[Rfam]
RNA sequence: UUGCACGAAAACAACGAUAGCCCUGCCUCUCCAUCGUUCUUGCGGCUCCUAGGCCGCGCCAGUGAGAGUUCGUGUUCCUUCCAGCAG
Numbered sequence: 001u002u003g004c005a006c007g008a009a010a011a012c013a014a015c016g017a018u019a020g021c022c023c024u025g026c027c028u029c030u031c032c033a034u035c036g037u038u039c040u041u042g043c044g045g046c047u048c049c050u051a052g053g054c055c056g057c058g059c060c061a062g063u064g065a066g067a068g069u070u071c072g073u074g075u076u077c078c079u080u081c082c083a084g085c086a087g
Base pairs, nucleotide, nucleotide: 034067035066039062040061041058042057043056044055045054046053047052